The record is a 134-nucleotide RNA from Vulpes vulpes, which matches "Small nucleolar RNA SNORA31" in Rfam. It scores 71 bits against the family's covariance model. On this family, see Huttenhofer et al., EMBO J 2001: "RNomics: an experimental approach that identifies 201 candidates for novel, small, non-messenger RNAs in mouse". ACA31 (SNORA31) belongs to the H/ACA class of snoRNAs which are thought to guide the sites of modification of uridines to pseudouridines. ACA31 is predicted to guide the pseudouridylation of U3713 in 28S rRNA and U218 in 18S rRNA. This family includes the mouse homologue snoMBI-161.
RNA sequence: AUGCAUCCAUGUGACAGACCUGGAGCAGUUUCUAUCUGCUCCUAAGGUUUCUGCUAGAGAUGCAAGAAAAAGCUAUCCUCGCGCUUUCUAGCUGCCUGACGGUGGCAGUCAAGAUUGAAUGGGGGAGUACAGGG
Numbered sequence: 001a002u003g004c005a006u007c008c009a010u011g012u013g014a015c016a017g018a019c020c021u022g023g024a025g026c027a028g029u030u031u032c033u034a035u036c037u038g039c040u041c042c043u044a045a046g047g048u049u050u051c052u053g054c055u056a057g058a059g060a061u062g063c064a065a066g067a068a069a070a071a072g073c074u075a076u077c078c079u080c081g082c083g084c085u086u087u088c089u090a091g092c093u094g095c096c097u098g099a100c101g102g103u104g105g106c107a108g109u110c111a112a113g114a115u116u117g118a119a120u121g122g123g124g125g126a127g128u129a130c131a132g133g134g
Stems, first nucleotide, its partner, number of pairs: 002064006008057001012053002016050005023041006076126005084117001087114003092108005